A member of the RNA family "permuted transfer-messenger RNA" from Sphingobium algorifonticola, 222 nucleotides long. NCBI's taxonomy places the organism under Bacteria, Pseudomonadati, Sphingomonadales, Sphingobiaceae, Sphingobium. Its family is annotated with RNA catabolic process in the Gene Ontology. The family's RNA type in Rfam is non-coding RNA gene.
RNA sequence: GGCGAUAAAUUGUGCCGUGUAAUAGACGCAGCGGACGCGGGGGCAGUACCCGCCGGCUCCACCAUAUGCCCCGGCGCAGCAUUGCGGCGAGGCACCUGACGGGGCCGAACCAGGAUCGACGUGUGUUCAAAGACGGUAUUUUCGCCCGGCCCGAGUAAGCCGUAAAACUGUUCAAAACCCAUAAGUGCCAACGAUAACGAAGCACUCGCUCUCGCAGCGUAA
Numbered sequence: 001g002g003c004g005a006u007a008a009a010u011u012g013u014g015c016c017g018u019g020u021a022a023u024a025g026a027c028g029c030a031g032c033g034g035a036c037g038c039g040g041g042g043g044c045a046g047u048a049c050c051c052g053c054c055g056g057c058u059c060c061a062c063c064a065u066a067u068g069c070c071c072c073g074g075c076g077c078a079g080c081a082u083u084g085c086g087g088c089g090a091g092g093c094a095c096c097u098g099a100c101g102g103g104g105c106c107g108a109a110c111c112a113g114g115a116u117c118g119a120c121g122u123g124u125g126u127u128c129a130a131a132g133a134c135g136g137u138a139u140u141u142u143c144g145c146c147c148g149g150c151c152c153g154a155g156u157a158a159g160c161c162g163u164a165a166a167a168c169u170g171u172u173c174a175a176a177a178c179c180c181a182u183a184a185g186u187g188c189c190a191a192c193g194a195u196a197a198c199g200a201a202g203c204a205c206u207c208g209c210u211c212u213c214g215c216a217g218c219g220u221a222a
Base pairs, nucleotide, nucleotide: 001146002145003144004143005142015136016135017134018133027125028124029123031122032121033120037053038052039051040050041049054107055106056105057104058103059102060101147162148161149160150159
Dot-bracket structure: (((((.........((((........(((.(((...(((((.......)))))(((((((........................................)))))))............)))))).......)))).....)))))((((........))))............................................................
About the family: Bacterial tmRNA, also known as 10Sa RNA or SsrA, is named for its dual tRNA and mRNA-like properties.